[Rfam]
RNA sequence: UCACUCUGGUUUCCCUUCAAAACGUAUAAAUCUUUCGCCUUUUACUAAAGAUUUCCGUGGAGGGGAACACUCAAAUGAGUCUAUAAUCAUUUUUUGAAACUCUACUUUUUAGUAGAGU
Numbered sequence: 001u002c003a004c005u006c007u008g009g010u011u012u013c014c015c016u017u018c019a020a021a022a023c024g025u026a027u028a029a030a031u032c033u034u035u036c037g038c039c040u041u042u043u044a045c046u047a048a049a050g051a052u053u054u055c056c057g058u059g060g061a062g063g064g065g066a067a068c069a070c071u072c073a074a075a076u077g078a079g080u081c082u083a084u085a086a087u088c089a090u091u092u093u094u095u096g097a098a099a100c101u102c103u104a105c106u107u108u109u110u111a112g113u114a115g116a117g118u
Base pairs, nucleotide, nucleotide: 003080004079005078006077009068010067011066012065013064014063015062016061017060018059019058028054029053030052031051032050033049034048035047098118100117101116102115103114104113105112
RNA: U5 spliceosomal RNA